[Rfam]
A member of the RNA family "Arthropod 7SK RNA" from Pogonomyrmex barbatus, 313 nucleotides long.
RNA sequence: GGAAGCGUGUGCUAGUGAUGGCACAACUGAACAUCGAUCGCUAAACGUAGAGAUAUGGCAGAUCUGCUCAGUGGGUGUUGUCACGUUAUCGUAAGCUUCAAGUAGCUGAGUGGUCUGACUCCCGAUUGCGCAUGCAUCUUCGUGGCUCGUGUUUUCACGACCACGGAUUUGCACGCCUGCACGGUUCUGAGUCUUCACGUCGCUCCUCGAAGUACCCGCGAUUUCCAAAUUGGGGGGUAAUCGAAUAGGUCAGACGAGGUAAUUUGUCGCUUCCAUAUGCAGGCACCGCGAUUAGCGGUAUGCCAUUUUUUUG
Numbered sequence: 001g002g003a004a005g006c007g008u009g010u011g012c013u014a015g016u017g018a019u020g021g022c023a024c025a026a027c028u029g030a031a032c033a034u035c036g037a038u039c040g041c042u043a044a045a046c047g048u049a050g051a052g053a054u055a056u057g058g059c060a061g062a063u064c065u066g067c068u069c070a071g072u073g074g075g076u077g078u079u080g081u082c083a084c085g086u087u088a089u090c091g092u093a094a095g096c097u098u099c100a101a102g103u104a105g106c107u108g109a110g111u112g113g114u115c116u117g118a119c120u121c122c123c124g125a126u127u128g129c130g131c132a133u134g135c136a137u138c139u140u141c142g143u144g145g146c147u148c149g150u151g152u153u154u155u156c157a158c159g160a161c162c163a164c165g166g167a168u169u170u171g172c173a174c175g176c177c178u179g180c181a182c183g184g185u186u187c188u189g190a191g192u193c194u195u196c197a198c199g200u201c202g203c204u205c206c207u208c209g210a211a212g213u214a215c216c217c218g219c220g221a222u223u224u225c226c227a228a229a230u231u232g233g234g235g236g237g238u239a240a241u242c243g244a245a246u247a248g249g250u251c252a253g254a255c256g257a258g259g260u261a262a263u264u265u266g267u268c269g270c271u272u273c274c275a276u277a278u279g280c281a282g283g284c285a286c287c288g289c290g291a292u293u294a295g296c297g298g299u300a301u302g303c304c305a306u307u308u309u310u311u312u313g
Base pairs, nucleotide, nucleotide: 001274002273003272004271005270006269007268015084016083017082018081019080027071028070029069032066033065036064037063038062039061040059041058042057043056282304283303284302285299286298287297288296289295
The base pairs follow the family's consensus structure, which is taken from published work. Its Rfam clan is "7SK clan". NCBI's taxonomy places the organism under Eukaryota, Dicondylia, Pterygota, Apocrita, Pogonomyrmex.